This 147-nucleotide RNA sequence from Erwinia sorbitola belongs to the Rfam family "Leucine operon leader". By type it is a cis-regulatory leader. Rfam's curators write: At least 6 amino acid operons are known to be regulated by attenuation. In each a leader sequence of 150-200 bp is found upstream of the first gene in the operon. A reference for the family is Kolter and Yanofsky (1982), "Attenuation in amino acid biosynthetic operons", Annu Rev Genet.
Nucleotides: 147
Base pairs, nucleotide, nucleotide: 004106006104007103008102009101010100012098013097014096016094017093018092029085030084031083032082033081034080035079036078045073046072047071048070049069053067054066055065056064119144120143121142122141123140124139125138126137127136128135129134
Number, partner (000 for none) and nucleotide at each position: 001000u002000g003000a004106g005000g006104u007103u008102u009101g010100a011000g012098u013097u014096a015000a016094u017093g018092a019000u020000u021000c022000g023000u024000u025000c026000u027000a028000a029085u030084c031083g032082c033081c034080u035079a036078c037000u038000c039000g040000u041000u042000c043000u044000a045073c046072u047071a048070c049069u050000a051000a052000a053067c054066g055065c056064a057000u058000c059000c060000c061000c062000u063000u064056u065055g066054c067053g068000c069049g070048g071047u072046a073045g074000a075000c076000u077000u078036g079035u080034g081033g082032g083031c084030g085029g086000a087000a088000u089000c090000a091000a092018u093017c094016a095000c096014u097013g098012a099000u100010u101009c102008a103007g104006g105000c106004c107000u108000g109000u110000a111000a112000a113000a114000c115000c116000u117000a118000a119144g120143a121142a122141a123140c124139c125138c126137g127136c128135g129134c130000c131000g132000a133000u134129g135128c136127g137126c138125g139124g140123g141122u142121u143120u144119u145000u146000u147000u
Notes: The family's consensus secondary structure is taken from published work.